The family of this 159-nucleotide RNA from Cinara cedri is "U12 minor spliceosomal RNA".

RNA sequence: GUGCCUUAAACUAAUGAGUAAGGAAAAUUUACAAGCCUUGGUGACUCUUGGCUCUUACAGCCAUUAAUGCUGUCAACUUAAUUUUUGGAGGGGUAAAGGUCGUCCCCUUGACCGGUUCGUCUACUUUGCGAGUCCGGUCGGGCGAUAGCGAUCUGCCCC
Numbered sequence: 001g002u003g004c005c006u007u008a009a010a011c012u013a014a015u016g017a018g019u020a021a022g023g024a025a026a027a028u029u030u031a032c033a034a035g036c037c038u039u040g041g042u043g044a045c046u047c048u049u050g051g052c053u054c055u056u057a058c059a060g061c062c063a064u065u066a067a068u069g070c071u072g073u074c075a076a077c078u079u080a081a082u083u084u085u086u087g088g089a090g091g092g093g094u095a096a097a098g099g100u101c102g103u104c105c106c107c108u109u110g111a112c113c114g115g116u117u118c119g120u121c122u123a124c125u126u127u128g129c130g131a132g133u134c135c136g137g138u139c140g141g142g143c144g145a146u147a148g149c150g151a152u153c154u155g156c157c158c159c
Base pairs, nucleotide, nucleotide: 004023005022006021007020008019034053035052036051037050040047057073058072059071060070061069090159091158092157093156094155097154098153099152100151101150102149103148106142107141110139111138112137113136114135116132117131118130119129120128
A search with the family's covariance model found it, with a score of 106 bits. For this family Rfam cites "Pre-mRNA splicing: the discovery of a new spliceosome doubles the challenge" (Tarn and Steitz, Trends Biochem Sci, 1997).